[Rfam]
ASpks TB sRNA: a 75-nucleotide sequence from Streptomyces klenkii. The base pairs follow the family's consensus structure, which is taken from published work.
RNA sequence: CUUGAUCGAGCCCAGCCACAGCGGCUUGUCGUCGCUACGGCCCUGCCCGUACGUCGCGAGCAGCGCCUGCGCCUC
Dot-bracket structure: .............((((.....))))......(....((...((..(.(....).)..))...))...)......